RNA sequence: CCGAAUAAUCAGGGGUGCUGAGCAAUCGGCUGAGACGGAGAGAUCCGAACCCUUUACCUGAUAUGGAUAAUGCCAGCGUAGGGAGAUUGUAAUUUUAUUAC
Dot-bracket structure: .....(((((((((.((((((....)))))......(((....))))..))))...((((...(((......)))...))))..)))))............
Shown here is a 101-nucleotide RNA from Eubacterium sp. CAG:841, a member of the family "TPP riboswitch aptamer (THI element)". The match comes from Rfam's covariance-model search (71 bits). NCBI's taxonomy places the organism under Bacteria, Bacillati, Clostridia, Eubacteriales, Eubacterium. Vitamin B(1) in its active form thiamin pyrophosphate (TPP) is an essential coenzyme that is synthesised by coupling of pyrimidine and thiazole moieties in bacteria. The previously detected thiamin-regulatory element, thi box was extended, resulting in a new, highly conserved RNA secondary structure, the THI element, which is widely distributed in eubacteria and also occurs in some archaea. Analysis of operon structures identified a large number of new candidate thiamin-regulated genes, mostly transporters, in various prokaryotic organisms. The THI element is a riboswitch that directly binds to TPP to regulate gene expression through a variety of mechanisms in archaea, bacteria and eukaryotes. through a variety of mechanisms in archaea, bacteria and eukaryotes. The base pairs follow the family's consensus structure, which is taken from published work.